[Rfam]
RNA sequence: UCCUCGCUCAAAGAAUCGCAUUCAAAGCUUACGCACAGAAGAAAGCCUUUCUCAGGGCCUUCUUCAAACCACACCCUCUAGCUUUGGGAGAAAGUCCCCGGACACCCUGCGCCCUCGGGCUUUUCACCCACGGGGUUCUUUUUGUUACCAAAAAGCCAGGCAAUGCGGAAACGCGCCGCCAUAGAAGCAUAUUUCAUUGCGGCUUAAUGCCUUUCUCUUCUUCUUCUCUUUUCUUUAAGGAGGAAGACCUCCCCUUUCCAUCCCGACUUUGCAGAAGUUUCGAUUUCUGCUGAGGUAACAAUGGUGGCUGGAUUGGAUGGGCCAGUUUUUGCUGGCGGGGAUUGGUUGCUAUUCGUCGUGGUUGGAUAGUCAUGCGAUUGCUCUUUUUUUGUAUAUACGCCUUUAACAGGGUGUGUGUAUGAUUUUUGAGUAACUCGAUGGGGCUUAUUCUUGAGGCGAGG
Numbered sequence: 001u002c003c004u005c006g007c008u009c010a011a012a013g014a015a016u017c018g019c020a021u022u023c024a025a026a027g028c029u030u031a032c033g034c035a036c037a038g039a040a041g042a043a044a045g046c047c048u049u050u051c052u053c054a055g056g057g058c059c060u061u062c063u064u065c066a067a068a069c070c071a072c073a074c075c076c077u078c079u080a081g082c083u084u085u086g087g088g089a090g091a092a093a094g095u096c097c098c099c100g101g102a103c104a105c106c107c108u109g110c111g112c113c114c115u116c117g118g119g120c121u122u123u124u125c126a127c128c129c130a131c132g133g134g135g136u137u138c139u140u141u142u143u144g145u146u147a148c149c150a151a152a153a154a155g156c157c158a159g160g161c162a163a164u165g166c167g168g169a170a171a172c173g174c175g176c177c178g179c180c181a182u183a184g185a186a187g188c189a190u191a192u193u194u195c196a197u198u199g200c201g202g203c204u205u206a207a208u209g210c211c212u213u214u215c216u217c218u219u220c221u222u223c224u225u226c227u228c229u230u231u232u233c234u235u236u237a238a239g240g241a242g243g244a245a246g247a248c249c250u251c252c253c254c255u256u257u258c259c260a261u262c263c264c265g266a267c268u269u270u271g272c273a274g275a276a277g278u279u280u281c282g283a284u285u286u287c288u289g290c291u292g293a294g295g296u297a298a299c300a301a302u303g304g305u306g307g308c309u310g311g312a313u314u315g316g317a318u319g320g321g322c323c324a325g326u327u328u329u330u331g332c333u334g335g336c337g338g339g340g341a342u343u344g345g346u347u348g349c350u351a352u353u354c355g356u357c358g359u360g361g362u363u364g365g366a367u368a369g370u371c372a373u374g375c376g377a378u379u380g381c382u383c384u385u386u387u388u389u390u391g392u393a394u395a396u397a398c399g400c401c402u403u404u405a406a407c408a409g410g411g412u413g414u415g416u417g418u419a420u421g422a423u424u425u426u427u428g429a430g431u432a433a434c435u436c437g438a439u440g441g442g443g444c445u446u447a448u449u450c451u452u453g454a455g456g457c458g459a460g461g
Stems, first nucleotide, its partner, number of pairs: 002461006008454004014379006022088001023086006038065006092446003096443004229244006246350001248348001254345002262339004321332002324329001381430003
This 461-nucleotide RNA from Paracoccidioides brasiliensis belongs to the Rfam family "RNase MRP".
Taxonomically the source falls in Paracoccidioides (Eukaryota, Dikarya, Onygenales, Ajellomycetaceae).
The family's RNA type in Rfam is ribozyme.
Rfam's curators write: RNase MRP is an enzymatically active ribonucleoprotein with two distinct roles in eukaryotes.
A search with the family's covariance model found it, with a score of 101 bits.